[Rfam]
RNA: Small nucleolar RNA SNORA84
Organism: Hymenochirus boettgeri
RNA sequence: GCCCUGUGGUUACCAGAUCUGCAUUUAUCAUUCAGUUUUCUGGUUGUUUUCAGAAGGGCAAAAAGUAAAACUGUGAUUUUUGCUUGGGACUGGAUUGUGUACUGGUUCCCAUAGCCCGGUCACUGUAACAUUA
Numbered sequence: 001g002c003c004c005u006g007u008g009g010u011u012a013c014c015a016g017a018u019c020u021g022c023a024u025u026u027a028u029c030a031u032u033c034a035g036u037u038u039u040c041u042g043g044u045u046g047u048u049u050u051c052a053g054a055a056g057g058g059c060a061a062a063a064a065g066u067a068a069a070a071c072u073g074u075g076a077u078u079u080u081u082g083c084u085u086g087g088g089a090c091u092g093g094a095u096u097g098u099g100u101a102c103u104g105g106u107u108c109c110c111a112u113a114g115c116c117c118g119g120u121c122a123c124u125g126u127a128a129c130a131u132u133a
Stems, first nucleotide, its partner, number of pairs: 001059004008049001010046001012044006019035003071125001073123006082115002085111003088107006